Rfam assigns this 91-nucleotide RNA sequence from Cohnella pontilimi to the family "c-di-GMP-I-GGC riboswitch aptamer". The family's consensus secondary structure is taken from published work. On this family, see Weinberg et al., Proc Natl Acad Sci U S A 2017: "Bioinformatic analysis of riboswitch structures uncovers variant classes with altered ligand specificity". It scores 60 bits against the family's covariance model.
[Rfam]
RNA sequence: AGUGAAAAAGGCAAAUCACGGGAAACCGUGAGACGCAAAGCCAAGGGCCUGACCCACGUCGCAGACGCUGGAUGGCAGCCGGUUGCCACAA
Numbered sequence: 001a002g003u004g005a006a007a008a009a010g011g012c013a014a015a016u017c018a019c020g021g022g023a024a025a026c027c028g029u030g031a032g033a034c035g036c037a038a039a040g041c042c043a044a045g046g047g048c049c050u051g052a053c054c055c056a057c058g059u060c061g062c063a064g065a066c067g068c069u070g071g072a073u074g075g076c077a078g079c080c081g082g083u084u085g086c087c088a089c090a091a
Stems, first nucleotide, its partner, number of pairs: 003088002011036002016031006034078001039084004045080002047076003